[Rfam]
RNA sequence: CUGUAAGGGGAAUGAUGUAUUACUAUCGGGCUCUUAGGAUGCUGGCGUUUCUGGAUUCUGCAUCGGAGAUGGACAUUCGG
Numbered sequence: 001c002u003g004u005a006a007g008g009g010g011a012a013u014g015a016u017g018u019a020u021u022a023c024u025a026u027c028g029g030g031c032u033c034u035u036a037g038g039a040u041g042c043u044g045g046c047g048u049u050u051c052u053g054g055a056u057u058c059u060g061c062a063u064c065g066g067a068g069a070u071g072g073a074c075a076u077u078c079g080g
Stems, first nucleotide, its partner, number of pairs: 001080003005077002
RNA: Small nucleolar RNA J33
Organism: Carpinus fangiana